[Rfam]
RNA sequence: UUCUUUCAUGGGGAAGCAGAUUUGGGUACCACCCAAGUAUUGACUCACCCAUCAACAACCGCUAUGUACUUCGUACAUUAUUGCCAGUCACCAUGAAUAUUGUACG
Numbered sequence: 001u002u003c004u005u006u007c008a009u010g011g012g013g014a015a016g017c018a019g020a021u022u023u024g025g026g027u028a029c030c031a032c033c034c035a036a037g038u039a040u041u042g043a044c045u046c047a048c049c050c051a052u053c054a055a056c057a058a059c060c061g062c063u064a065u066g067u068a069c070u071u072c073g074u075a076c077a078u079u080a081u082u083g084c085c086a087g088u089c090a091c092c093a094u095g096a097a098u099a100u101u102g103u104a105c106g
Stems, first nucleotide, its partner, number of pairs: 005097007012089002016084004022036006037059002040055004064078005
RNA: Mitochondrial DNA control region secondary structure A